[Rfam]
RNA sequence: UUCACUUCGCUUUCACCGGUGACUUUAGUGCUUUGUCACAGAGAGAACUAAGGCACGCGGUGAAUGCCAAGAGAA
Number, nucleotide and partner (000 for none) at each position: 001u000002u000003c073004a000005c071006u070007u000008c000009g067010c066011u000012u064013u063014c062015a061016c060017c000018g000019g058020u057021g056022a000023c053024u052025u051026u050027a049028g048029u047030g000031c000032u000033u000034u000035g000036u000037c000038a000039c000040a000041g000042a000043g000044a000045g000046a000047a029048c028049u027050a026051a025052g024053g023054c000055a000056c021057g020058c019059g000060g016061u015062g014063a013064a012065u000066g010067c009068c000069a000070a006071g005072a000073g003074a000075a000